[Rfam]
RNA sequence: UUGACCGUCCACUCCACCGCUGGUCCACCCGAUCCCGAUCGGGGCGGGCAAGAGGAAAGUCCGGGCAACACAGGGCACCACGCCGGCUAACGGCCGGGGUCCCUUCCCCCCCGGGAAGGGGCACGGAAAGUGCAACAGAAAGCAAACCGCCCCGACCCCGCCCCGAUAGCUAUCGGGAUCGGAAUCGGGGUAAGGGUGAAACCGUGGGGUAAGAGCCCACGACUUCCCGUAGUAAUACGGGAUGGAGGUAAACCCCGUGGGUUGAAAUACCAAACAGCGUUCCAGCCUUUACGGAGGCUACGGCCGGCCCGGUCGGAUACAAGGAACGCGGGUAGGUAGAUAGAGCCGUCGGGCAACCGCCGGCCUAGAUAAAUGGUGGAGCGCCCCGUCGAUUACCGUCGGAGGGGCCGACAGAACCCGGCUUACCGGAACGGUCAACUUU
Numbered sequence: 001u002u003g004a005c006c007g008u009c010c011a012c013u014c015c016a017c018c019g020c021u022g023g024u025c026c027a028c029c030c031g032a033u034c035c036c037g038a039u040c041g042g043g044g045c046g047g048g049c050a051a052g053a054g055g056a057a058a059g060u061c062c063g064g065g066c067a068a069c070a071c072a073g074g075g076c077a078c079c080a081c082g083c084c085g086g087c088u089a090a091c092g093g094c095c096g097g098g099g100u101c102c103c104u105u106c107c108c109c110c111c112c113g114g115g116a117a118g119g120g121g122c123a124c125g126g127a128a129a130g131u132g133c134a135a136c137a138g139a140a141a142g143c144a145a146a147c148c149g150c151c152c153c154g155a156c157c158c159c160g161c162c163c164c165g166a167u168a169g170c171u172a173u174c175g176g177g178a179u180c181g182g183a184a185u186c187g188g189g190g191u192a193a194g195g196g197u198g199a200a201a202c203c204g205u206g207g208g209g210u211a212a213g214a215g216c217c218c219a220c221g222a223c224u225u226c227c228c229g230u231a232g233u234a235a236u237a238c239g240g241g242a243u244g245g246a247g248g249u250a251a252a253c254c255c256c257g258u259g260g261g262u263u264g265a266a267a268u269a270c271c272a273a274a275c276a277g278c279g280u281u282c283c284a285g286c287c288u289u290u291a292c293g294g295a296g297g298c299u300a301c302g303g304c305c306g307g308c309c310c311g312g313u314c315g316g317a318u319a320c321a322a323g324g325a326a327c328g329c330g331g332g333u334a335g336g337u338a339g340a341u342a343g344a345g346c347c348g349u350c351g352g353g354c355a356a357c358c359g360c361c362g363g364c365c366u367a368g369a370u371a372a373a374u375g376g377u378g379g380a381g382c383g384c385c386c387c388g389u390c391g392a393u394u395a396c397c398g399u400c401g402g403a404g405g406g407g408c409c410g411a412c413a414g415a416a417c418c419c420g421g422c423u424u425a426c427c428g429g430a431a432c433g434g435u436c437a438a439c440u441u442u
Stems, first nucleotide, its partner, number of pairs: 001438008009429002012381007020052002023049004028044003057424003061421005066264004073310004078260005083097005098124001099122010125255002130253002132249002147195002149191007203221006223245001225242007268338004277329006301315005345364004350359003
RNA: Bacterial RNase P class A
Organism: Neolewinella marina